The record is a 94-nucleotide RNA sequence from Tripterygium wilfordii, which matches "Small nucleolar RNA R72" in Rfam. Its family is annotated with nucleolus and RNA processing in the Gene Ontology. About the family: snoR72 is a C/D box small nucleolar RNA, which acts as a methylation guide for 25S ribosomal RNA in Arabidopsis. A search with the family's covariance model found it, with a score of 46 bits.

Nucleotides: 094
Stems, first nucleotide, its partner, number of pairs: 001094005036058002039055005
Number, partner (000 for none) and nucleotide at each position: 001094a002093a003092g004091c005090a006000a007000a008000u009000g010000a011000c012000g013000a014000g015000a016000u017000a018000u019000c020000a021000u022000u023000u024000u025000a026000g027000a028000u029000a030000u031000g032000a033000g034000a035000a036058g037057c038000a039055c040054g041053c042052a043051u044000u045000u046000g047000a048000u049000u050000u051043a052042u053041g054040c055039g056000a057037g058036c059000a060000g061000u062000g063000u064000u065000u066000u067000a068000c069000c070000u071000c072000a073000u074000a075000c076000u077000u078000c079000c080000a081000u082000g083000a084000c085000u086000c087000u088000g089000a090005u091004g092003c093002u094001u